[Rfam]
Small nucleolar RNA U3: a 214-nucleotide RNA sequence from Rhinolophus ferrumequinum. Rfam's curators write: Small nucleolar RNAs (snoRNAs) are involved in the processing and modification of rRNA in the nucleolus. There are two main classes of snoRNAs: the box C/D class, and the box H/ACA class. U3 snoRNA is a member of the box C/D class. Indeed, the box C/D element is a subset of the six short sequence elements found in all U3 snoRNAs, namely boxes A, A', B, C, C', and D. The U3 snoRNA secondary structure is characterised by a small 5' domain (with boxes A and A'), and a larger 3' domain (with boxes B, C, C', and D), the two domains being linked by a single-stranded hinge. The family's consensus secondary structure is taken from published work. By type it is a C/D-box small nucleolar RNA. The literature on the family includes a 1997 paper in Nucleic Acids Res by Zwieb, "The uRNA database".
RNA sequence: AAGACUAUACUUUCAGGGAUCAUUUCUAUAGUUUGUUACUAGAGAAGUUUCUGUGAUCGUGUAGAGCACCGGAAACCACCAGGAGGAGGUGCAGUGUUCUCUCCUGAGCGUGAAGCCGGCUCUUGGUGCUGCUUUUAUAACUGUCAUUAGCCACUGAUGGUCGUUCUUCUCUUCGUUUGGGAAAGUAAGAGGGAGAGGACCCAGUCUGAGCGGC
Numbered sequence: 001a002a003g004a005c006u007a008u009a010c011u012u013u014c015a016g017g018g019a020u021c022a023u024u025u026c027u028a029u030a031g032u033u034u035g036u037u038a039c040u041a042g043a044g045a046a047g048u049u050u051c052u053g054u055g056a057u058c059g060u061g062u063a064g065a066g067c068a069c070c071g072g073a074a075a076c077c078a079c080c081a082g083g084a085g086g087a088g089g090u091g092c093a094g095u096g097u098u099c100u101c102u103c104c105u106g107a108g109c110g111u112g113a114a115g116c117c118g119g120c121u122c123u124u125g126g127u128g129c130u131g132c133u134u135u136u137a138u139a140a141c142u143g144u145c146a147u148u149a150g151c152c153a154c155u156g157a158u159g160g161u162c163g164u165u166c167u168u169c170u171c172u173u174c175g176u177u178u179g180g181g182a183a184a185g186u187a188a189g190a191g192g193g194a195g196a197g198g199a200c201c202c203a204g205u206c207u208g209a210g211c212g213g214c
Base pairs, nucleotide, nucleotide: 002040003039006035007034009032010031011030015027016026017025018024049065050064053062054061076213077212079210094202096200097199098198099197100196101195102194103193104192105191108164109163110162118152119151120150121149124146125145126144127143128141130139131138167188168187169185170184172182173181174180